A member of the RNA family "L31-Actinobacteria ribosomal protein leader" from Pilimelia anulata, 60 nucleotides long. The family's consensus secondary structure is taken from published work. NCBI's taxonomy places the organism under Bacteria, Bacillati, Actinomycetes, Micromonosporaceae, Pilimelia. A reference for the family is Eckert and Weinberg (2020), "Discovery of 20 novel ribosomal leader candidates in bacteria and archaea", BMC Microbiol. A search with the family's covariance model found it, with a score of 48 bits. It is annotated as a cis-regulatory leader.

[Rfam]
RNA sequence: UCGGUACCGGUUCACGCCGACAACCACCCGCCACGCGAGGGGUGGGGCGACCCGGCGACC
Numbered sequence: 001u002c003g004g005u006a007c008c009g010g011u012u013c014a015c016g017c018c019g020a021c022a023a024c025c026a027c028c029c030g031c032c033a034c035g036c037g038a039g040g041g042g043u044g045g046g047g048c049g050a051c052c053c054g055g056c057g058a059c060c
Stems, first nucleotide, its partner, number of pairs: 003060003007055004015049004021044002